[Rfam]
RNA sequence: ACCAAGCGGUAUGACUGACGGAAGUGGAUGAAACCACAGGGAGUACCGCCUCUGGAACGCCGACCGUCUGGGCGCACCUC
Numbered sequence: 001a002c003c004a005a006g007c008g009g010u011a012u013g014a015c016u017g018a019c020g021g022a023a024g025u026g027g028a029u030g031a032a033a034c035c036a037c038a039g040g041g042a043g044u045a046c047c048g049c050c051u052c053u054g055g056a057a058c059g060c061c062g063a064c065c066g067u068c069u070g071g072g073c074g075c076a077c078c079u080c
Stems, first nucleotide, its partner, number of pairs: 004051001006049007015040002017068005024037004058074004